This 150-nucleotide RNA sequence from Oryza nivara belongs to the Rfam family "small nucleolar RNA snoR134". On this family, see Chen and Wu, Nucleic Acids Res 2009: "Mining small RNA sequencing data: a new approach to identify small nucleolar RNAs in Arabidopsis".
[Rfam]
RNA sequence: AUGCACAGUGCUAACCCCGGGCUUGUCGGACUGGAAUCCUUUGAAGAAUGAAUCCCCAAUGACUGUGCUAGAUCCACCAUGCCAUUCAGUGUUGCAGGUCAUGAUGCUUCGAGCUCGUGAUUGGUCUGUGUCAGCGUGAUGGAUACAUUC
Dot-bracket structure: ..((((((..(.......(((.(((((..................)).)).).)))....).)))))).............(((((...((.(((((((((................)))....)))))).))....)))))........
The source organism's lineage runs through Eukaryota, Embryophyta, Magnoliopsida, Poaceae and Oryza.
It is annotated as an H/ACA-box small nucleolar RNA.
The match comes from Rfam's covariance-model search (120 bits).